The family of this 83-nucleotide sequence from Caenorhabditis brenneri is "mir-359 microRNA precursor family". Taxonomically the source falls in Caenorhabditis (Eukaryota, Bilateria, Rhabditidae, Peloderinae). A search with the family's covariance model found it, with a score of 68 bits. Pairs were carried over by alignment from the consensus structure, which was predicted with RNAalifold.

RNA sequence: AAUCGUUCGAUUGUCAGAGCAAUCCUCAGUAACACGUACUCAUUAUUUGUGUCACUGGUUUUCUUCUGACGAAUCGAAAUGCU
Numbered sequence: 001a002a003u004c005g006u007u008c009g010a011u012u013g014u015c016a017g018a019g020c021a022a023u024c025c026u027c028a029g030u031a032a033c034a035c036g037u038a039c040u041c042a043u044u045a046u047u048u049g050u051g052u053c054a055c056u057g058g059u060u061u062u063c064u065u066c067u068g069a070c071g072a073a074u075c076g077a078a079a080u081g082c083u
Stems, first nucleotide, its partner, number of pairs: 003081001006078005012071008021062002027057004032052004